[Rfam]
RNA: folP RNA
RNA sequence: UACAUGGAGGAAAUGCCAUGGGAUGGGUGUAUCCUAUCCGGUCUCAUUGAUGAUUAUUUCCCUGAUUAUCAAUCGGACUGCGGGGCUGUCAUACUCCUCAAU
Numbered sequence: 001u002a003c004a005u006g007g008a009g010g011a012a013a014u015g016c017c018a019u020g021g022g023a024u025g026g027g028u029g030u031a032u033c034c035u036a037u038c039c040g041g042u043c044u045c046a047u048u049g050a051u052g053a054u055u056a057u058u059u060c061c062c063u064g065a066u067u068a069u070c071a072a073u074c075g076g077a078c079u080g081c082g083g084g085g086c087u088g089u090c091a092u093a094c095u096c097c098u099c100a101a102u
Base pairs, nucleotide, nucleotide: 003020004019005018006017007016021039022038023037024036025035026034027033040079041078042077043076046073047072048071049070050069051068052067053066054065055064056063